RNA sequence: UGCAUCUUGUCGGGGUGCCUUGCUCCUAGUGGUAAAGGCUGAGAAAACACCCGUGAACCUGAUCCAGUUCGUACUGGCGGAGGAAAUAGGAUGCAAUACCAC
Numbered sequence: 001u002g003c004a005u006c007u008u009g010u011c012g013g014g015g016u017g018c019c020u021u022g023c024u025c026c027u028a029g030u031g032g033u034a035a036a037g038g039c040u041g042a043g044a045a046a047a048c049a050c051c052c053g054u055g056a057a058c059c060u061g062a063u064c065c066a067g068u069u070c071g072u073a074c075u076g077g078c079g080g081a082g083g084a085a086a087u088a089g090g091a092u093g094c095a096a097u098a099c100c101a102c
Stems, first nucleotide, its partner, number of pairs: 006090005011053004016047001017039005058083003064077004

The record is a 102-nucleotide sequence from Advenella faeciporci, which matches "TPP riboswitch aptamer (THI element)" in Rfam. NCBI's taxonomy places the organism under Bacteria, Pseudomonadota, Betaproteobacteria, Burkholderiales, Advenella. Rfam links the family to the GO term thiamine pyrophosphate binding.